[Rfam]
Nucleotides: 183
Stems, first nucleotide, its partner, number of pairs: 003150001005147001008143002011140001014136004019131002023127001025126005031120003035117003040112004045107002050102001051097003058092001152175010
Number, partner (000 for none) and nucleotide at each position: 001000c002000a003150c004000c005147g006000c007000c008143c009142g010000u011140c012000g013000c014136u015135a016134c017133u018000a019131c020130c021000g022000a023127u024000u025126g026125a027124a028123c029122g030000a031120c032119c033118g034000c035117a036116g037115u038000g039000a040112g041111g042110u043109c044000u045107u046106c047000g048000g049000a050102c051097c052096g053095g054000c055000g056000g057000a058092u059000a060000c061000g062000c063000g064000u065000g066000u067000c068000c069000u070000g071000c072000c073000c074000c075000u076000u077000c078000g079000g080000g081000a082000g083000c084000u085000g086000g087000u088000u089000a090000u091000c092058g093000c094000g095053c096052c097051g098000c099000u100000g101000c102050g103000g104000a105000a106046g107045a108000u109043g110042a111041c112040c113000g114000a115037a116036c117035u118033c119032g120031g121000c122029c123028g124027u125026u126025u127023a128000g129000a130020g131019g132000a133017a134016g135015u136014a137000a138000a139000a140011g141000u142009c143008g144000u145000a146000a147005c148000a149000a150003g151000g152175u153174u154173u155172c156171c157170g158169u159168a160167g161166g162000u163000g164000a165000a166161c167160c168159u169158g170157c171156g172155g173154a174153a175152g176000g177000a178000u179000c180000a181000u182000u183000a